[Rfam]
Record summary
A member of the RNA family "terC RNA" from Polymorphobacter multimanifer, 62 nucleotides long.
RNA sequence: AUUGCGGGCCGGGCCCCCCUGGCAGUUGUUAUCCCUGAUAACUGCGAUGUCGGACCGCAUCG
Numbered sequence: 001a002u003u004g005c006g007g008g009c010c011g012g013g014c015c016c017c018c019c020u021g022g023c024a025g026u027u028g029u030u031a032u033c034c035c036u037g038a039u040a041a042c043u044g045c046g047a048u049g050u051c052g053g054a055c056c057g058c059a060u061c062g
Base pairs, nucleotide, nucleotide: 006056007055009053010052011051012050022045023044024043025042026041027040028039029038